[Rfam]
The record is a 94-nucleotide RNA from Anguilla anguilla, which matches "Z30 small nucleolar RNA" in Rfam. Lineage of the source: Eukaryota > Metazoa > Actinopterygii > Anguilliformes > Anguilla. The base pairs follow the family's consensus structure, which was predicted with PFOLD.

RNA sequence: GACAAUGAUGAGAGAAAUCUACUGACUUGGUAGUGCCUCCACAGGAAGGCACUGACCAAGGUGUGAUUAUAAGCAUAAUCUUCUCUCUGAGUCG
Number, nucleotide and partner (000 for none) at each position: 001g000002a092003c091004a000005a000006u000007g000008a000009u000010g000011a000012g000013a000014g000015a000016a000017a000018u000019c000020u000021a000022c000023u000024g000025a000026c000027u000028u000029g000030g000031u000032a000033g000034u000035g050036c049037c048038u047039c000040c000041a000042c000043a000044g000045g000046a000047a038048g037049g036050c035051a000052c000053u000054g000055a000056c000057c000058a000059a000060g000061g000062u000063g000064u000065g000066a000067u000068u000069a000070u000071a000072a000073g000074c000075a000076u000077a000078a000079u000080c000081u000082u000083c000084u000085c000086u000087c000088u000089g000090a000091g003092u002093c000094g000